[Rfam]
Nucleotides: 069
Base pairs, nucleotide, nucleotide: 011057012056013055016052017051018050019049023044024043025042026041027040028039029038030037031036
Number, partner (000 for none) and nucleotide at each position: 001000g002000a003000c004000g005000a006000a007000u008000c009000u010000a011057u012056c013055g014000c015000g016052c017051a018050c019049c020000a021000a022000g023044c024043c025042c026041g027040c028039g029038g030037c031036u032000u033000a034000c035000c036031g037030g038029c039028u040027g041026c042025g043024g044023g045000g046000g047000a048000g049019g050018g051017u052016g053000g054000g055013c056012g057011a058000a059000a060000u061000g062000a063000g064000g065000g066000c067000u068000c069000a